Shown here is a 41-nucleotide sequence from Malus domestica, a member of the family "Plastid-ndhJ 3UTR RNA". The family has 50 seed sequences and 869 matches in Rfam 15.1. A reference for the family is Richter et al. (2023), "Retrograde signaling in plants: A critical review focusing on the GUN pathway and beyond", Plant Commun. The family's consensus secondary structure was predicted with LocARNA. Lineage of the source: Eukaryota > Magnoliopsida > Pentapetalae > fabids > Malus. Plastid ndhJ is a non-coding RNA (ncRNA) present in plastids. It was identified as a short stem-loop motif in the 3 prime untranslate region (3UTR) of ndhJ gene.

RNA sequence: GCGCCCAUCACUUAGAUGGGCUAUAGAAAGUAACAUAGGAG
Numbered sequence: 001g002c003g004c005c006c007a008u009c010a011c012u013u014a015g016a017u018g019g020g021c022u023a024u025a026g027a028a029a030g031u032a033a034c035a036u037a038g039g040a041g
Stems, first nucleotide, its partner, number of pairs: 003021002006018004